serC leader: a 53-nucleotide RNA sequence from Pseudaminobacter soli. It is annotated as a cis-regulatory leader. Taxonomically the source falls in Pseudaminobacter (Bacteria, Pseudomonadota, Alphaproteobacteria, Phyllobacteriaceae). Pairs were carried over by alignment from the consensus structure. Rfam links the family to the GO term regulation of gene expression. Rfam's curators write: This family is a putative regulatory RNA structure that is found upstream of the serC-serA operon in some alpha-proteobacteria. The final stem of the structure overlaps the ribosome binding site of the serC reading frame.
RNA sequence: CAGUGGGCCACCCCUCCCCAACGAGGGGCUUGCUAUCUGGAAGGGUAGAUUAU
Numbered sequence: 001c002a003g004u005g006g007g008c009c010a011c012c013c014c015u016c017c018c019c020a021a022c023g024a025g026g027g028g029c030u031u032g033c034u035a036u037c038u039g040g041a042a043g044g045g046u047a048g049a050u051u052a053u
Base pairs, nucleotide, nucleotide: 011028012027013026014025015024016023033048034047035046036045037044038043